The record is a 951-nucleotide sequence, which matches "MISL RNA" in Rfam.

[Rfam]
RNA sequence: GAUAAAUCCCAGGAUAACUGGGCGAAAGGGUCGGCGAGGCUAAUUUGCUGGCCCCCUAUCAAGACGCGACGGGUUCGCGAUGAAACUCGGCUGGAAGAUUGCUUCGGCGAUUGGACGGACGGGCGGAAUGCGGAAAACCGGGCGGGGAGAAGGCACAGUUCACACGAGUGCCCGGUGGCGUUCGCACGCUGCCGAAAAUGCGAAAUGGCACUCAGGAAGUGAGGGGUGAAAAAGUGCGGGCGAAAGCUCACACAAAGAGCCACCCCGAACUGACUCACGAACGUGAUAGAGACACUUCAGGCAACCCUUCGGGGAAGCUAUGCAGACCGUCUCAUUCGCCGGACUGGUCCAGAUUCGAUUCCUUCGGGGAUUGGAACUGUAAGUCAGAAACUCAAGCCUGCUUCGGGCCUGAGUGGAAAAGUAGUUGCCCAGAGGGUAUUGGUUGCCUACUACGAAAAUUGGCACGGCAGGAAUCUAAAAUUGGCCGGUGACGGCCAGCCAGACGAAAUCCUCUGAAAGGAGGGACAAAGCUGGGGUUCCCGUCGGGAUAGCCACGAGCCCAAGACAACGGCCGUGAAAACUAUCCGGCAAGGUGGCGAUGCAAAAAACUGCAGCGCUGUCAUGUGAACGAAAUGGCAACCUGAGGGGUAAGAGGCGAGACCCGUGGCACGGGCCAACGCACCGCCAAAAGCGGUGGCCGACCUGUGCCAGAUGGCUUGGAUGUGAUUGGUUCACAUCCGCGUCCAAGCCUGGUCCGCGGGUCAGUGGCCGCAACCACUGGCUGAAGCGGGCAAAUAAACCUCACCCGAAAAUUCAAGUGCUGUAAGGCCUUGGACGGCCCUGUUAUGAGGCCGACAACUCCGCGAGUCACGGGGAAUGGCGUCGGGGAGCAAUCAACCUGCUUGCAGGUGCCUAAUGAUUGUAUCUGGUAAAGAGCGUGUGGCGAGCGCC
Dot-bracket structure: .......(((((.....))))).....(((.(((((((.....))))))).)))...............................................................................................................................................................................................................................................................................................................................................(((((.((.........)).)))))......[[[[.((((.....))))..((((((...]]]].............................(((.((......)).)))........((((((....)))))).....................(((((...(((.(((.........))))))......))))).............((((......))))......................))))))...(((....((((...........(((((((......((((((.....)))))).....))))))).......((((((((((.............))))))))))....((((((..((((((((......))))))))....)))))).......)))).))).....((((((.(((....)))))))))(((((..[[[[...)))))....(((((.......)))))..]]]]........(((((((((.((....)).))......)))))))............(((.........))).